[Rfam]
RNA sequence: GGCCGGUGAUGUGAGAUCAAUAUUUGCUACUCUUGAUUGGAUCGUUUCGAAUCCAACCUGAUGAUUCCUAUCCACCAAGAUCUCUGAGGCC
Numbered sequence: 001g002g003c004c005g006g007u008g009a010u011g012u013g014a015g016a017u018c019a020a021u022a023u024u025u026g027c028u029a030c031u032c033u034u035g036a037u038u039g040g041a042u043c044g045u046u047u048c049g050a051a052u053c054c055a056a057c058c059u060g061a062u063g064a065u066u067c068c069u070a071u072c073c074a075c076c077a078a079g080a081u082c083u084c085u086g087a088g089g090c091c
Stems, first nucleotide, its partner, number of pairs: 001091004
RNA: Small nucleolar RNA SNORD24
Organism: Actinidia chinensis